Lysine riboswitch aptamer: a 172-nucleotide RNA from Photobacterium jeanii.

[Rfam]
RNA sequence: CCCUAAAGUAGAGGCGCGCUGCCUAAAAGUAUCCGAGCGGAGGGUGAUUCCGAUGAUGCCGGGGAAAGGAGUCAGCGCCGAAGUGACUGUUGCUAUCAAUCUCAGUCGCUGGGUCUGUGUCGAAUAGGUACAGAACUGCCAUAGAUUAUUACUAUGGAGCGCUACCUGAAGG
Numbered sequence: 001c002c003c004u005a006a007a008g009u010a011g012a013g014g015c016g017c018g019c020u021g022c023c024u025a026a027a028a029g030u031a032u033c034c035g036a037g038c039g040g041a042g043g044g045u046g047a048u049u050c051c052g053a054u055g056a057u058g059c060c061g062g063g064g065a066a067a068g069g070a071g072u073c074a075g076c077g078c079c080g081a082a083g084u085g086a087c088u089g090u091u092g093c094u095a096u097c098a099a100u101c102u103c104a105g106u107c108g109c110u111g112g113g114u115c116u117g118u119g120u121c122g123a124a125u126a127g128g129u130a131c132a133g134a135a136c137u138g139c140c141a142u143a144g145a146u147u148a149u150u151a152c153u154a155u156g157g158a159g160c161g162c163u164a165c166c167u168g169a170a171g172g
Stems, first nucleotide, its partner, number of pairs: 006167001008165004016078006023071002032063004037059003082110008092100001111137002114134008139157006